[Rfam]
The family of this 114-nucleotide sequence from Paenibacillus sp. PvR098 is "pan motif". It scores 44 bits against the family's covariance model. NCBI's taxonomy places the organism under Bacteria, Bacillota, Bacilli, Caryophanales, Paenibacillus.
RNA sequence: GAGGCAGUAUCCGGCCGGAAUUGCACUCCAACGAUUCGUUUUUUCACAACUGAAAAGCUUCGCUAUGCAAUAUGUCGGAUUCUGCUCUGAGCCAAACCGGACCGAGACAGAAGG
Dot-bracket structure: ((((((((.((......))))))).))).....................................................((((((.(..((.....)).).))).)))....